[Rfam]
RNA sequence: AUCUUAUCAAGAGCGGUGGAGGGACUGGCCCUAUGAAACCCGACAACCAACAUCUAUUUUUUAGGUGUACUGGUGUCAAUUCCUGCAGAGUAAGCUAUGCCUACUCUGGAAGAUAAGAA
Numbered sequence: 001a002u003c004u005u006a007u008c009a010a011g012a013g014c015g016g017u018g019g020a021g022g023g024a025c026u027g028g029c030c031c032u033a034u035g036a037a038a039c040c041c042g043a044c045a046a047c048c049a050a051c052a053u054c055u056a057u058u059u060u061u062u063a064g065g066u067g068u069a070c071u072g073g074u075g076u077c078a079a080u081u082c083c084u085g086c087a088g089a090g091u092a093a094g095c096u097a098u099g100c101c102u103a104c105u106c107u108g109g110a111a112g113a114u115a116a117g118a119a
Stems, first nucleotide, its partner, number of pairs: 002118007013041001015040003021031003025085001027083002042077004047073002050068006081111001086108006
RNA: SAM riboswitch aptamer (S box leader)
Organism: Clostridium carboxidivorans